[Rfam]
The record is a 112-nucleotide RNA from a Parvibaculaceae bacterium, which matches "Guanidine-I riboswitch aptamer" in Rfam. The match comes from Rfam's covariance-model search (82 bits). The base pairs follow the family's consensus structure.
RNA sequence: GUUGGCAGCGGCUAGGGUUCCGGCCUUCCCAUCGGGAGGGUGCUGGUCCGAGAGCCGCAACCCCCUCGGUGAACAGCGGCGGGGUACACGGCGGGACAAAAGCCCGGGAGGU
Numbered sequence: 001g002u003u004g005g006c007a008g009c010g011g012c013u014a015g016g017g018u019u020c021c022g023g024c025c026u027u028c029c030c031a032u033c034g035g036g037a038g039g040g041u042g043c044u045g046g047u048c049c050g051a052g053a054g055c056c057g058c059a060a061c062c063c064c065c066u067c068g069g070u071g072a073a074c075a076g077c078g079g080c081g082g083g084g085u086a087c088a089c090g091g092c093g094g095g096a097c098a099a100a101a102g103c104c105c106g107g108g109a110g111g112u
Base pairs, nucleotide, nucleotide: 008058009057010056011055012054015049016048020046021045022043023041024040025039026038027037028036060085061084062083063082064081066079067078087107089110093105094104095103